This 38-nucleotide RNA sequence from Shewanella oneidensis belongs to the Rfam family "JUMPstart RNA". Rfam 15.1 lists 288 matches to the family in 230 species.

[Rfam]
RNA sequence: GGGCAAUAUAGAGGCCGCAAUCUAUGGGCGGUAGCGUG
Numbered sequence: 001g002g003g004c005a006a007u008a009u010a011g012a013g014g015c016c017g018c019a020a021u022c023u024a025u026g027g028g029c030g031g032u033a034g035c036g037u038g
Base pairs, nucleotide, nucleotide: 008025009024010023011022012021

The base pairs follow the family's consensus structure, which is taken from published work. The sequence is in the family's curated seed alignment.